[Rfam]
RNA sequence: AUUGUGGAGUGUCAUACAAACUCAAGUAGCUUAGGCGAAAGAGGACACUAUGAAGCAAUAA
Numbered sequence: 001a002u003u004g005u006g007g008a009g010u011g012u013c014a015u016a017c018a019a020a021c022u023c024a025a026g027u028a029g030c031u032u033a034g035g036c037g038a039a040a041g042a043g044g045a046c047a048c049u050a051u052g053a054a055g056c057a058a059u060a061a
Stems, first nucleotide, its partner, number of pairs: 001059005009048005021043003029036002
RNA: RAGATH-18 RNA